RNA sequence: AUAGUUACGCAGCCUAAUCCAGCCUUGGUUGGAGCGGAGGACCCAAUUUUUGGGGCUUAUCUCAGGGCGAAACGCAUCGCCAGAGAAGGGGAUCUCUCACCCCUCGCCCGUCAGCUAACUCCGUCGGCCUUGGGAGAGAACGU
Numbered sequence: 001a002u003a004g005u006u007a008c009g010c011a012g013c014c015u016a017a018u019c020c021a022g023c024c025u026u027g028g029u030u031g032g033a034g035c036g037g038a039g040g041a042c043c044c045a046a047u048u049u050u051u052g053g054g055g056c057u058u059a060u061c062u063c064a065g066g067g068c069g070a071a072a073c074g075c076a077u078c079g080c081c082a083g084a085g086a087a088g089g090g091g092a093u094c095u096c097u098c099a100c101c102c103c104u105c106g107c108c109c110g111u112c113a114g115c116u117a118a119c120u121c122c123g124u125c126g127g128c129c130u131u132g133g134g135a136g137a138g139a140a141c142g143u
Base pairs, nucleotide, nucleotide: 012128013127014126018033019032020031021030022029034124035123036122037121038120039119044052045051053109054108055107061085062084063083088103089102090101091100

A member of the RNA family "c-di-AMP riboswitch aptamer (ydaO/yuaA leader)" from Nodosilinea sp. LEGE 07088, 143 nucleotides long. Rfam links the family to the GO terms regulation of gene expression and cyclic-di-AMP binding. NCBI's taxonomy places the organism under Bacteria, Cyanobacteriota, Cyanophyceae, Nodosilineales, Nodosilinea. The match comes from Rfam's covariance-model search (72 bits).